[Rfam]
RNA sequence: GGUUUGCGUGAGGGAUUGCAGUGGAAAUCCUUUUUUGAGGUUUUUCUCCGAAAAAAAGAUUGUAACGGAAAGCCCGACCCGAU
Numbered sequence: 001g002g003u004u005u006g007c008g009u010g011a012g013g014g015a016u017u018g019c020a021g022u023g024g025a026a027a028u029c030c031u032u033u034u035u036u037g038a039g040g041u042u043u044u045u046c047u048c049c050g051a052a053a054a055a056a057a058g059a060u061u062g063u064a065a066c067g068g069a070a071a072g073c074c075c076g077a078c079c080c081g082a083u
Base pairs, nucleotide, nucleotide: 012075013074014073016071017070021066022065026061027060030058031057032053033052034051037048038047039046
The family of this 83-nucleotide RNA from Flavobacterium psychrophilum is "Flavo-1 RNA".
NCBI's taxonomy places the organism under Bacteria, Pseudomonadati, Flavobacteriales, Flavobacterium, Flavobacterium psychrophilum.